[Rfam]
RNA sequence: UGACUGCGAUGAAGUGGAAGGUUGCUGACACACCCGGUCGCUUUGCCAUGGCGAGUGUGCAGGAAAUUUCCAUGGAGAAUGUCUAUUUUGAAAAUAGGCGAAGA
Numbered sequence: 001u002g003a004c005u006g007c008g009a010u011g012a013a014g015u016g017g018a019a020g021g022u023u024g025c026u027g028a029c030a031c032a033c034c035c036g037g038u039c040g041c042u043u044u045g046c047c048a049u050g051g052c053g054a055g056u057g058u059g060c061a062g063g064a065a066a067u068u069u070c071c072a073u074g075g076a077g078a079a080u081g082u083c084u085a086u087u088u089u090g091a092a093a094a095u096a097g098g099c100g101a102a103g104a
Stems, first nucleotide, its partner, number of pairs: 014073003019069003025062003080103001082101002087098003
RNA: S10-Clostridia ribosomal protein leader